Rfam assigns this 98-nucleotide sequence from Clostridium disporicum to the family "Purine riboswitch aptamer".
The base pairs follow the family's consensus structure, which is taken from published work.
The literature on the family includes a 2003 paper in Cell by Mandal et al., "Riboswitches Control Fundamental Biochemical Pathways in Bacillus subtilis and Other Bacteria".
Rfam's curators write: Riboswitches are metabolite binding domains within certain messenger RNAs that serve as precision sensors for their corresponding targets.
Rfam links the family to the GO term purine nucleobase biosynthetic process.
The organism belongs to Clostridium, within Bacteria.
RNA sequence: AUACGAACAAUAAAGACUGCUUAUAUAUCCCCCUAAUAUGGAGGGGAGUAUCUACCGGAAGCCGUAAAUUUCCGACUAUAAGUGAAGUUUGAUAUAGC
Numbered sequence: 001a002u003a004c005g006a007a008c009a010a011u012a013a014a015g016a017c018u019g020c021u022u023a024u025a026u027a028u029c030c031c032c033c034u035a036a037u038a039u040g041g042a043g044g045g046g047a048g049u050a051u052c053u054a055c056c057g058g059a060a061g062c063c064g065u066a067a068a069u070u071u072c073c074g075a076c077u078a079u080a081a082g083u084g085a086a087g088u089u090u091g092a093u094a095u096a097g098c
Stems, first nucleotide, its partner, number of pairs: 018084008030046001031044001033043002056074006